[Rfam]
RNA: Hepatitis C virus stem-loop SL1412 RNA
RNA sequence: CUCGCCGCGGCCUGCUUCGGCCUGGAGGCCGACCGGGUCAAGGUCGUC
Number, nucleotide and partner (000 for none) at each position: 001c000002u000003c000004g000005c000006c043007g000008c000009g000010g038011c037012c036013u035014g034015c000016u000017u000018c031019g030020g029021c028022c000023u000024g000025g000026a000027g000028g021029c020030c019031g018032a000033c000034c014035g013036g012037g011038u010039c000040a000041a000042g000043g006044u000045c000046g000047u000048c000